[Rfam]
RNA sequence: UCUGGAGGACUAAUCAGACUGAGUCUGAAGAGUGAGACUCAGGUGACAGUAGUCUCCUAGAAGAAAAGGGAUGGAGAGAGCAGUCCUACUUACAGAAAAGCAAAGGGCCUGCUGCACCAUCUGACACUA
Numbered sequence: 001u002c003u004g005g006a007g008g009a010c011u012a013a014u015c016a017g018a019c020u021g022a023g024u025c026u027g028a029a030g031a032g033u034g035a036g037a038c039u040c041a042g043g044u045g046a047c048a049g050u051a052g053u054c055u056c057c058u059a060g061a062a063g064a065a066a067a068g069g070g071a072u073g074g075a076g077a078g079a080g081c082a083g084u085c086c087u088a089c090u091u092a093c094a095g096a097a098a099a100g101c102a103a104a105g106g107g108c109c110u111g112c113u114g115c116a117c118c119a120u121c122u123g124a125c126a127c128u129a
Stems, first nucleotide, its partner, number of pairs: 002060002004057005017044001019042001021040006068122003079113002083108005091102001093100001